[Rfam]
Shown here is a 79-nucleotide RNA sequence from Pristionchus pacificus, a member of the family "SmY spliceosomal RNA". Pairs were carried over by alignment from the consensus structure, which is taken from published work. Taxonomically the source falls in Pristionchus (Eukaryota, Metazoa, Eumetazoa, Protostomia). On this family, see MacMorris et al., RNA 2007: "A novel family of C. elegans snRNPs contains proteins associated with trans-splicing". Rfam classes the family as a spliceosomal small nuclear RNA.
Nucleotides: 079
Stems, first nucleotide, its partner, number of pairs: 022039003026035003057078009
Number, partner (000 for none) and nucleotide at each position: 001000u002000c003000g004000u005000a006000u007000u008000a009000a010000a011000u012000c013000a014000a015000u016000c017000u018000c019000u020000c021000a022039g023038g024037g025000c026035c027034u028033c029000g030000a031000u032000a033028g034027a035026g036000a037024c038023c039022c040000a041000g042000a043000a044000u045000c046000c047000a048000g049000u050000u051000u052000u053000u054000g055000g056000a057078g058077g059076u060075c061074u062073u063072c064071c065070a066000c067000a068000c069000u070065u071064g072063g073062g074061a075060g076059g077058u078057u079000a